Shown here is an 80-nucleotide RNA from Gemmobacter megaterium, a member of the family "Bradyrhizobiaceae sRNA BjrC68". A reference for the family is Madhugiri et al. (2012), "Small RNAs of the Bradyrhizobium/Rhodopseudomonas lineage and their analysis", RNA Biol.
RNA sequence: CGACCGCUUCGAUCUGGUGGCCUGACGGGCGCAUCGGGACGUUUGGGGGCCGCAGCGCAAGCUGCGGCCCCGUUUUUUUG
Numbered sequence: 001c002g003a004c005c006g007c008u009u010c011g012a013u014c015u016g017g018u019g020g021c022c023u024g025a026c027g028g029g030c031g032c033a034u035c036g037g038g039a040c041g042u043u044u045g046g047g048g049g050c051c052g053c054a055g056c057g058c059a060a061g062c063u064g065c066g067g068c069c070c071c072g073u074u075u076u077u078u079u080g
Base pairs, nucleotide, nucleotide: 005041006040008038009037010036011035012034013033046071047070048069049068050067051066052065053064055062056061
Pairs were carried over by alignment from the consensus structure. The match comes from Rfam's covariance-model search (40 bits). Taxonomically the source falls in Gemmobacter (Bacteria, Alphaproteobacteria, Rhodobacterales, Paracoccaceae).